[Rfam]
RNA sequence: ACUUACCACAGCAUUUCGUAUGUACCAUGUAAAGAUUUUUAUUAUUAAUUCUUUAUUUUUAGGUGUACCAUUCCUAGCAAAACCUAUUAUAAGGGAGAGGGGUUUUAGUUGGUAGGUCCUCCUGUGAGGGAAUCCAACACUACCCAGUCGUACGGACGGCUGGGUGUCUUUCGAAGAUUUCCCCUCUUCCACGAAA
Numbered sequence: 001a002c003u004u005a006c007c008a009c010a011g012c013a014u015u016u017c018g019u020a021u022g023u024a025c026c027a028u029g030u031a032a033a034g035a036u037u038u039u040u041a042u043u044a045u046u047a048a049u050u051c052u053u054u055a056u057u058u059u060u061a062g063g064u065g066u067a068c069c070a071u072u073c074c075u076a077g078c079a080a081a082a083c084c085u086a087u088u089a090u091a092a093g094g095g096a097g098a099g100g101g102g103u104u105u106u107a108g109u110u111g112g113u114a115g116g117u118c119c120u121c122c123u124g125u126g127a128g129g130g131a132a133u134c135c136a137a138c139a140c141u142a143c144c145c146a147g148u149c150g151u152a153c154g155g156a157c158g159g160c161u162g163g164g165u166g167u168c169u170u171u172c173g174a175a176g177a178u179u180u181c182c183c184c185u186c187u188u189c190c191a192c193g194a195a196a
Stems, first nucleotide, its partner, number of pairs: 001064005071195003075191001093190005099183003108138005117130005140166001142165005

Rfam assigns this 196-nucleotide RNA sequence from Agrilus planipennis to the family "R2 RNA element". Rfam links the family to the GO term regulation of reverse transcription. The base pairs follow the family's consensus structure, which is taken from published work. For this family Rfam cites "Secondary structure models of the 3' untranslated regions of diverse R2 RNAs" (Ruschak et al., RNA, 2004). Taxonomically the source falls in Agrilus (Eukaryota, Protostomia, Ecdysozoa, Panarthropoda). Rfam classes the family as a cis-regulatory element.